[Rfam]
RNA: Plastid-psbA-1 3UTR RNA
RNA sequence: UUGAAGUUCCAUCUACAAAUGGAUAAGACUUUGGUCUUAGUGUAUACUCGUUUUUAAAAGUAAAGGAGCAAUAACCAAUUUCUUGUUCUAUCAGGAAGGCGUUAUUGUUCCUUUA
Numbered sequence: 001u002u003g004a005a006g007u008u009c010c011a012u013c014u015a016c017a018a019a020u021g022g023a024u025a026a027g028a029c030u031u032u033g034g035u036c037u038u039a040g041u042g043u044a045u046a047c048u049c050g051u052u053u054u055u056a057a058a059a060g061u062a063a064a065g066g067a068g069c070a071a072u073a074a075c076c077a078a079u080u081u082c083u084u085g086u087u088c089u090a091u092c093a094g095g096a097a098g099g100c101g102u103u104a105u106u107g108u109u110c111c112u113u114u115a
Base pairs, nucleotide, nucleotide: 008023009022010021011020012019062114063113064112065111066110067109068108069107070106071105072104073103074102081096082095083094084093